[Rfam]
A member of the RNA family "Bacterial RNase P class A" from Draconibacterium sediminis, 412 nucleotides long. The organism belongs to Draconibacterium, within Bacteria. A search with the family's covariance model found it, with a score of 208 bits. Gene Ontology terms of the family: dimeric ribonuclease P complex, tRNA processing and ribonuclease P activity.

RNA sequence: CCGGCAAGCCGCUUUAUCGGGCUGACGAUUACUGUCAGUCAGGAAAGUCCGGGCAACGCAGGGCGCCGUGCUUCCUAGCGGGAAGAUCUUUGAAAGGGGAUAGCAACGUAACAGAAAAUAACCACCUUGUUGUGGCGUGUCCACGGCAGGGAACGGGUGAAAAGGUGCGGUAAAAGCGCACCGGUGGAGGUGGCAACAUCACCAGCCGUACGUCUUACGGGUUGCAAAGCCAUGUAUAUCCAAAGUGUAUGCCGCUGUUGCGGUACAGCGAAACGGCCCGUUUUGCUCUCAACGCACAAGAGACUUUGGAGGGGUAGGCUGCAGGAUCCCGGCAGUGAUGUCGGGACUAGAUAAAUGAUAAAGGUCCGUCUUUUGACGGAUACAGGACCCGGCUUACAGGCUUGCCUUUUUA
Dot-bracket structure: ..((((((((((((((((.((((((((.....))))))))....[[[.[[[[[((((...[.[[.((((((((((.....)))))(((((.....)))).)((..(((((...........((.(((((((((((.....)))))))))))...)).......((((((.......)))))).((((.((((....)))).))).)..))))))))))))))))...((((.......(((((............................................(((...]].]..)))...)))))......))))......((((((((....))))))))..........)))))))........................]]]]]]]].).))))))))......